[Rfam]
RNA sequence: UUUGAAAAAAGGCAAAUCUAUCGAAAGGUGGAGACGCAAAGUUACAGGUCUAAGGUAUUUUACUAGGACGGCUGGGCUACCAAA
Numbered sequence: 001u002u003u004g005a006a007a008a009a010a011g012g013c014a015a016a017u018c019u020a021u022c023g024a025a026a027g028g029u030g031g032a033g034a035c036g037c038a039a040a041g042u043u044a045c046a047g048g049u050c051u052a053a054g055g056u057a058u059u060u061u062a063c064u065a066g067g068a069c070g071g072c073u074g075g076g077c078u079a080c081c082a083a084a
Stems, first nucleotide, its partner, number of pairs: 012037002017032006040078004045074003048069003055063003
Dot-bracket structure: ...........((...((((((....))))))...))..((((.((((((....(((...)))...)))..)))))))......